Shown here is a 309-nucleotide RNA from Fregetta grallaria, a member of the family "7SK RNA".
The family's consensus secondary structure is taken from published work.
A search with the family's covariance model found it, with a score of 273 bits.
Rfam describes the family as follows. 7SK was discovered as an abundant small nuclear RNA in the mid-70s but a possible function has only recently been suggested.
The family is grouped with related families in Rfam's "7SK clan".
Lineage of the source: Eukaryota > Dipnotetrapodomorpha > Theropoda > Aves > Fregetta.
Rfam classes the family as a non-coding RNA gene.
[Rfam]
RNA sequence: GGAUGUGAGGGCAAUCUGGCUGUGACAUCUGUCACCCCAUUGAUUGCCAGGGUUGAUUCGGCUGAUGUGGCUGGCUAGGUGGGUGUCCCCUUCCUCCCUCACCGCUCCAUGUGCGUCCCUCCCGAAGCUGCAUGCUCGGUACCUUCUCCGAUAGAGACUUACCAUUCAUCAGUCAAGGGUAUACGGUAGCUGUGCUCCCCUGCUAGAACCUCCAAACAAGCUCAAGGUAGAGGAAUGUAAGGUAGUCAAGCUUCCAAGACAGCGGACACAUCCAAGUGAGGCACUACAUGGGGUAGUCUGCCAUUGUUU
Numbered sequence: 001g002g003a004u005g006u007g008a009g010g011g012c013a014a015u016c017u018g019g020c021u022g023u024g025a026c027a028u029c030u031g032u033c034a035c036c037c038c039a040u041u042g043a044u045u046g047c048c049a050g051g052g053u054u055g056a057u058u059c060g061g062c063u064g065a066u067g068u069g070g071c072u073g074g075c076u077a078g079g080u081g082g083g084u085g086u087c088c089c090c091u092u093c094c095u096c097c098c099u100c101a102c103c104g105c106u107c108c109a110u111g112u113g114c115g116u117c118c119c120u121c122c123c124g125a126a127g128c129u130g131c132a133u134g135c136u137c138g139g140u141a142c143c144u145u146c147u148c149c150g151a152u153a154g155a156g157a158c159u160u161a162c163c164a165u166u167c168a169u170c171a172g173u174c175a176a177g178g179g180u181a182u183a184c185g186g187u188a189g190c191u192g193u194g195c196u197c198c199c200c201u202g203c204u205a206g207a208a209c210c211u212c213c214a215a216a217c218a219a220g221c222u223c224a225a226g227g228u229a230g231a232g233g234a235a236u237g238u239a240a241g242g243u244a245g246u247c248a249a250g251c252u253u254c255c256a257a258g259a260c261a262g263c264g265g266a267c268a269c270a271u272c273c274a275a276g277u278g279a280g281g282c283a284c285u286a287c288a289u290g291g292g293g294u295a296g297u298c299u300g301c302c303a304u305u306g307u308u309u
Stems, first nucleotide, its partner, number of pairs: 001108003005102007014092001018090002024087010035074002037070003043066003046062003119156003122139004127135002140151001189251003195245002198242002201239003210233002213230001274309003278304001280302003283297005